RNA: t44 RNA
Organism: Legionella pneumophila
RNA sequence: AAUACCGCGCUUUAAAUACACACACGUUUCGUCACAUGCGAUAGGGUCCCUUGGUGGGUUUCGUAUGGGAAGCGUGGAGGCUUAAC
Numbered sequence: 001a002a003u004a005c006c007g008c009g010c011u012u013u014a015a016a017u018a019c020a021c022a023c024a025c026g027u028u029u030c031g032u033c034a035c036a037u038g039c040g041a042u043a044g045g046g047u048c049c050c051u052u053g054g055u056g057g058g059u060u061u062c063g064u065a066u067g068g069g070a071a072g073c074g075u076g077g078a079g080g081c082u083u084a085a086c
Stems, first nucleotide, its partner, number of pairs: 023076008035067007043059001048058003